The record is a 78-nucleotide RNA sequence from Oryctolagus cuniculus, which matches "mir-28 microRNA precursor family" in Rfam. The match comes from Rfam's covariance-model search (86 bits). For this family Rfam cites "Identification of novel genes coding for small expressed RNAs" (Lagos-Quintana et al., Science, 2001). Rfam links the family to the GO terms RISC complex and miRNA-mediated post-transcriptional gene silencing.
RNA sequence: CUUGCCCCCAAGGAGCUCACAGUCUAUUGAGUUGCCAUUCUGACUUCCCCACUAGAUUAUGAGCUCCUGGAGGGCAGG
Numbered sequence: 001c002u003u004g005c006c007c008c009c010a011a012g013g014a015g016c017u018c019a020c021a022g023u024c025u026a027u028u029g030a031g032u033u034g035c036c037a038u039u040c041u042g043a044c045u046u047c048c049c050c051a052c053u054a055g056a057u058u059a060u061g062a063g064c065u066c067c068u069g070g071a072g073g074g075c076a077g078g
Base pairs, nucleotide, nucleotide: 001078002077003076004075005074006073007072009070011068012067013066014065015064016063017062018061019060021058022057023056024055025054026053028051029050030045031044032043033042034041